[Rfam]
RNA sequence: GCCGAUGCUUUAGAUAGAUACGAAGCUUUGUGGAAGUGCCGUCAGGCGCCCCGGAGCUUUGGGCGGUAACGGCACAUUGCAAGGUGUUGUUACCGUUUACAUA
Numbered sequence: 001g002c003c004g005a006u007g008c009u010u011u012a013g014a015u016a017g018a019u020a021c022g023a024a025g026c027u028u029u030g031u032g033g034a035a036g037u038g039c040c041g042u043c044a045g046g047c048g049c050c051c052c053g054g055a056g057c058u059u060u061g062g063g064c065g066g067u068a069a070c071g072g073c074a075c076a077u078u079g080c081a082a083g084g085u086g087u088u089g090u091u092a093c094c095g096u097u098u099a100c101a102u103a
Base pairs, nucleotide, nucleotide: 021061022060023059024058025057026056027055028054029053030052062097063096064095065094066093067092068091069090070089071088072087073086074085075084
RNA: COG2827 RNA